[Rfam]
RNA sequence: AUCUUAUCAAGAAAGGCAGAGGGAUUGGCCCGAUGAAGCCUUGGCAACCACUCGAAAGAGAAAGGUGCCAAAUCCAACCAAUUAAUUUAAUUGGGUAGAUAAGUC
Numbered sequence: 001a002u003c004u005u006a007u008c009a010a011g012a013a014a015g016g017c018a019g020a021g022g023g024a025u026u027g028g029c030c031c032g033a034u035g036a037a038g039c040c041u042u043g044g045c046a047a048c049c050a051c052u053c054g055a056a057a058g059a060g061a062a063a064g065g066u067g068c069c070a071a072a073u074c075c076a077a078c079c080a081a082u083u084a085a086u087u088u089a090a091u092u093g094g095g096u097a098g099a100u101a102a103g104u105c
Base pairs, nucleotide, nucleotide: 003103004102005101006100007099008098013042014041015040016039017038021031022030023029025077026076027075028074043069044068045067046066048065049064051060052059053058073097078094079093080092081091082090083089

A member of the RNA family "SAM riboswitch aptamer (S box leader)" from Arachidicoccus soli, 105 nucleotides long. The family has 457 seed sequences and 9,625 matches in Rfam 15.1. Lineage of the source: Bacteria > Bacteroidota > Chitinophagia > Chitinophagales > Arachidicoccus. The base pairs follow the family's consensus structure, which is taken from published work.